[Rfam]
RNA sequence: CGGUAGAUGCACCUUGAUCUUUAACUCCCCUAGUUGGUUGAUAGCCACUGGGGGUUUUUUCU
Numbered sequence: 001c002g003g004u005a006g007a008u009g010c011a012c013c014u015u016g017a018u019c020u021u022u023a024a025c026u027c028c029c030c031u032a033g034u035u036g037g038u039u040g041a042u043a044g045c046c047a048c049u050g051g052g053g054g055u056u057u058u059u060u061c062u
Stems, first nucleotide, its partner, number of pairs: 002013003027054008036045001
Rfam assigns this 62-nucleotide RNA from Nostoc sp. PCC 7120 = FACHB-418 to the family "Nitrogen stress-induced RNA 1". Lineage of the source: Bacteria > Cyanobacteriota > Cyanophyceae > Nostocaceae > Nostoc. It is annotated as a small RNA.